Background:
Rfam assigns this 90-nucleotide sequence from Cuscuta exaltata to the family "Plastid-rps12 3UTR RNA".

RNA sequence: GGUUUCCAUUGGUGCAAAUCAAAUUACCUAAAAUUCACCUGAGAAUAAAUUCUCCAGUGGUAGCAAAGGGUUAUCCAUUAAGCGGAGAAA
Dot-bracket structure: ........((.(.......).))............................(((((..((((((.....))))))..).....))))...
Overview
For this family Rfam cites "Retrograde signaling in plants: A critical review focusing on the GUN pathway and beyond" (Richter et al., Plant Commun, 2023). Plastid rpl20 is a non-coding RNA (ncRNA) recognised in plastids. It was found in the three prime untranslated region (3UTR) of rps12 gene, its 3UTR location sugest a role in transcript maduration. Rfam classes the family as a cis-regulatory element.